[Rfam]
RNA sequence: AUUUCUGUAACUUAAUAUUUUUUUUAAUAAAUGUAUCUGUUCUGUUCUUAUCAGCUUAAUAUCUGAUACGCACCGCAUGCGGUGCCAGUAUAUUAAACUGAUUUUUGGAAAUUGACGGGAGUUAGGGGCUUGCUCCACUCCCGUCGCGGGUUGGCCCGGUAUUGCAGUACCGCCGGGAUCAGCCCAUAUUUA
Numbered sequence: 001a002u003u004u005c006u007g008u009a010a011c012u013u014a015a016u017a018u019u020u021u022u023u024u025u026a027a028u029a030a031a032u033g034u035a036u037c038u039g040u041u042c043u044g045u046u047c048u049u050a051u052c053a054g055c056u057u058a059a060u061a062u063c064u065g066a067u068a069c070g071c072a073c074c075g076c077a078u079g080c081g082g083u084g085c086c087a088g089u090a091u092a093u094u095a096a097a098c099u100g101a102u103u104u105u106u107g108g109a110a111a112u113u114g115a116c117g118g119g120a121g122u123u124a125g126g127g128g129c130u131u132g133c134u135c136c137a138c139u140c141c142c143g144u145c146g147c148g149g150g151u152u153g154g155c156c157c158g159g160u161a162u163u164g165c166a167g168u169a170c171c172g173c174c175g176g177g178a179u180c181a182g183c184c185c186a187u188a189u190u191u192a
Stems, first nucleotide, its partner, number of pairs: 008027001010025001014021002049068006070085006114145008125136004148185006155177006

Shown here is a 192-nucleotide RNA sequence from Brassicogethes aeneus, a member of the family "U2 spliceosomal RNA". Taxonomically the source falls in Brassicogethes (Eukaryota, Metazoa, Allotriocarida, Hexapoda). U2 is a small nuclear RNA (snRNA) component of the spliceosome (involved in pre-mRNA splicing). Complementary binding between U2 snRNA (in an area lying towards the 5' end but 3' to hairpin I) and the branchpoint sequence (BPS) of the intron results the bulging out of an unpaired adenosine, on the BPS, which initiates a nucleophilic attack at the intronic 5' splice site, thus starting the first of two transesterification reactions that mediate splicing.